Source information: mraW RNA: a 98-nucleotide RNA sequence from Microbacterium oleivorans. The family's consensus secondary structure is taken from published work. It is annotated as a cis-regulatory element. The organism belongs to Microbacterium, within Bacteria.
RNA sequence: UUCUGAUCCUCGACUGCGACUCCCAGCCGCACGCCCUGACGCACUUCCCCGGCGCCAGGUCGGAGCGGAUGGGGAUCGGGGUCGAGGGCCCCACGGAC
Dot-bracket structure: .........((((((..((.(((((.((((.((.((((.(((.........))).)))).))..)))).))))).))..)))))).............